[Rfam]
RNA: Clostridiales-1 RNA
Organism: Firmicutes bacterium CAG:56
RNA sequence: UGAUGUCCAAGGGAGAAAUGGACAUAAAAUGGAUGCUUGCAUACAUUUUUAUGUCUAUGAAUCCCGCCAAAUCAUGAAAAAGCAGCCAUUUUUCGCAGAAAAAUGAGCGGAUUUUGAAUGAUUGCAAAAUUGCGAGAGUUAUAUUAUAACGGAGCAAUUUUGAGGACAUCA
Dot-bracket structure: (((((((....(((...((((((((((((.(.(((....))).)..))))))))))))...)))...(.((((((..((((...((((((((((...)))))))).))...))))..)))))))..(((((((....((((.....))))...)))))))....)))))))